[Rfam]
chrB-a RNA: an 89-nucleotide RNA from Pelagibacterium luteolum. A search with the family's covariance model found it, with a score of 60 bits.

RNA sequence: UAUAUGGGGAAAAGCGAACUCCCCACGAGGCGACAGCCAAAGCUCGCGUUCCACACCCAUUUCGGUUUUCAAAGCCAGGGAACGCCAUG
Numbered sequence: 001u002a003u004a005u006g007g008g009g010a011a012a013a014g015c016g017a018a019c020u021c022c023c024c025a026c027g028a029g030g031c032g033a034c035a036g037c038c039a040a041a042g043c044u045c046g047c048g049u050u051c052c053a054c055a056c057c058c059a060u061u062u063c064g065g066u067u068u069u070c071a072a073a074g075c076c077a078g079g080g081a082a083c084g085c086c087a088u089g
Stems, first nucleotide, its partner, number of pairs: 005025006046085006
The base pairs follow the family's consensus structure, which is taken from published work. Rfam classes the family as a cis-regulatory element.